[Rfam]
RNA sequence: CCUGUCUGUACAGGUCGGGAUGUGGUCCGAAGGGGCUGAACCAGCAA
Numbered sequence: 001c002c003u004g005u006c007u008g009u010a011c012a013g014g015u016c017g018g019g020a021u022g023u024g025g026u027c028c029g030a031a032g033g034g035g036c037u038g039a040a041c042c043a044g045c046a047a
Stems, first nucleotide, its partner, number of pairs: 001014005017042002024037005
This 47-nucleotide RNA sequence belongs to the Rfam family "eL15-Euryarchaeota ribosomal protein leader". For this family Rfam cites "Discovery of 20 novel ribosomal leader candidates in bacteria and archaea" (Eckert and Weinberg, BMC Microbiol, 2020). The sequence is in the family's curated seed alignment.